[Rfam]
RNA sequence: CCACGGACUCGCGUCCGUGGCUAUUGCCUGUCGUCACUUCGUGACU
Numbered sequence: 001c002c003a004c005g006g007a008c009u010c011g012c013g014u015c016c017g018u019g020g021c022u023a024u025u026g027c028c029u030g031u032c033g034u035c036a037c038u039u040c041g042u043g044a045c046u
Base pairs, nucleotide, nucleotide: 001020002019003018004017005016006015007014008013033045034044035043036042037041
Dot-bracket structure: ((((((((....))))))))............(((((...))))).